Rfam assigns this 84-nucleotide sequence from Megamonas hypermegale to the family "Glycine riboswitch aptamer". It scores 66 bits against the family's covariance model. About the family: This family represents the bacterial glycine riboswitch. The base pairs follow the family's consensus structure. The organism belongs to Megamonas, within Bacteria.
[Rfam]
RNA sequence: UUGAAGGAUACGGGAGAGACCGCGAAAGCGGCGCCGAAGGUGAAAGAGGCACAAACUCUCAGGCAAAAGGACCGUAUGUGGACG
Number, nucleotide and partner (000 for none) at each position: 001u000002u000003g000004a000005a000006g079007g000008a077009u076010a075011c074012g073013g072014g000015a000016g000017a000018g000019a000020c031021c030022g029023c028024g000025a000026a000027a000028g023029c022030g021031g020032c000033g064034c063035c062036g060037a059038a000039g000040g058041u000042g056043a000044a000045a000046g000047a000048g000049g000050c000051a000052c000053a000054a000055a000056c042057u000058c040059u037060c036061a000062g035063g034064c033065a000066a000067a000068a000069g000070g000071a000072c013073c012074g011075u010076a009077u008078g000079u006080g000081g000082a000083c000084g000